[Rfam]
RNA sequence: UGAUUUCUUCGGGGCAGGGUGAAAUUCCCGACCGACGGUAACAACUAAAAGUUGAAGUCCGUGACCCGCGUUUUGCGGUGGACCCAGUGAGAUUCUGGGACCGACAGUAUAGUCUGGAUGGGAGAAGAAAAAA
Numbered sequence: 001u002g003a004u005u006u007c008u009u010c011g012g013g014g015c016a017g018g019g020u021g022a023a024a025u026u027c028c029c030g031a032c033c034g035a036c037g038g039u040a041a042c043a044a045c046u047a048a049a050a051g052u053u054g055a056a057g058u059c060c061g062u063g064a065c066c067c068g069c070g071u072u073u074u075g076c077g078g079u080g081g082a083c084c085c086a087g088u089g090a091g092a093u094u095c096u097g098g099g100a101c102c103g104a105c106a107g108u109a110u111a112g113u114c115u116g117g118a119u120g121g122g123a124g125a126a127g128a129a130a131a132a133a
Stems, first nucleotide, its partner, number of pairs: 004130007017029003031113002033103002035062004057101002066078002083099005105116003
Shown here is a 133-nucleotide sequence from Companilactobacillus tucceti, a member of the family "FMN riboswitch aptamer (RFN element)". Rfam's curators write: The RFN element is a highly conserved domain that is found frequently in the 5'-untranslated regions of prokaryotic mRNAs that encode for flavin mononucleotide (FMN) biosynthesis and transport proteins. The base pairs follow the family's consensus structure, which is taken from published work. A search with the family's covariance model found it, with a score of 122 bits. Lineage of the source: Bacteria > Bacillati > Bacilli > Companilactobacillus > Companilactobacillus tucceti.